[Rfam]
The family of this 52-nucleotide RNA sequence from Lentivirus simimdef is "HIV Ribosomal frameshift signal". Lineage of the source: Viruses > Artverviricota > Ortervirales > Orthoretrovirinae > Lentivirus simimdef. The base pairs follow the family's consensus structure, which is taken from published work. Rfam describes the family as follows. This family represents the HIV Ribosomal frameshift signal. HIV uses a system called -1 ribosomal frameshifting to produce the required ratio of Gag and Gag-Pol polyproteins. The stem-loop structure of the frameshift signal is thought to impede the ribosome and cause slippage in the 5' direction, this causes the -1 frameshift and translation then continues in the new frame. For this family Rfam cites "The human immunodeficiency virus type 1 ribosomal frameshifting site is an invariant sequence determinant and an important target for antiviral therapy" (Biswas et al., J Virol, 2004).

RNA sequence: UUUUUUAGGGAAGGUCUGGCCUCUCUCCAAAGGGAGGCCAGGAAAUUUCCCC
Numbered sequence: 001u002u003u004u005u006u007a008g009g010g011a012a013g014g015u016c017u018g019g020c021c022u023c024u025c026u027c028c029a030a031a032g033g034g035a036g037g038c039c040a041g042g043a044a045a046u047u048u049c050c051c052c
Base pairs, nucleotide, nucleotide: 008052009051010050012048013047014046015042016041017040018039019038020037021036022035023034024033025032